[Rfam]
RNA sequence: GGGCCUAUGGCGCAGUUGGUAGCGCGUCUCGUUCGCAAUGAGAAGGUCGGGAGUUCGAAUCUCCCUAGGUCCA
Numbered sequence: 001g002g003g004c005c006u007a008u009g010g011c012g013c014a015g016u017u018g019g020u021a022g023c024g025c026g027u028c029u030c031g032u033u034c035g036c037a038a039u040g041a042g043a044a045g046g047u048c049g050g051g052a053g054u055u056c057g058a059a060u061c062u063c064c065c066u067a068g069g070u071c072c073a
Stems, first nucleotide, its partner, number of pairs: 001072007010025004027043005049065005
RNA: tRNA
Organism: Orlajensenia flava